[Rfam]
RNA: Streptococcus sRNA SpF59 (ldcC RNA)
RNA sequence: UGCCCACCAUUUUGGUUAAGCCCAUACGGACAGGCGGGGCGUUUGCCGC
Numbered sequence: 001u002g003c004c005c006a007c008c009a010u011u012u013u014g015g016u017u018a019a020g021c022c023c024a025u026a027c028g029g030a031c032a033g034g035c036g037g038g039g040c041g042u043u044u045g046c047c048g049c
Base pairs, nucleotide, nucleotide: 001041002040003039004038005037006016007015008014009013